Rfam assigns this 85-nucleotide sequence from Halalkalibacter akibai to the family "c-di-GMP-I riboswitch aptamer".
Rfam describes the family as follows. GEMM was predicted in a large-scale screen for bacterial structured RNA regulatory elements. Genes associated with GEMM are involved in a diverse array of functions, including chemotaxis regulation, signal transduction, secretion and chitin.
A search with the family's covariance model found it, with a score of 82 bits.
[Rfam]
RNA sequence: AUAAAGAAAAGGCAAAUCUAUUGAAAAGUAGAGACGCAAAGUCACAGGUCUAAGGUCAAAUGACUAGGACGGCUGGGUUACCGAA
Numbered sequence: 001a002u003a004a005a006g007a008a009a010a011g012g013c014a015a016a017u018c019u020a021u022u023g024a025a026a027a028g029u030a031g032a033g034a035c036g037c038a039a040a041g042u043c044a045c046a047g048g049u050c051u052a053a054g055g056u057c058a059a060a061u062g063a064c065u066a067g068g069a070c071g072g073c074u075g076g077g078u079u080a081c082c083g084a085a
Stems, first nucleotide, its partner, number of pairs: 012037002017032006040079004045075003048070003055064003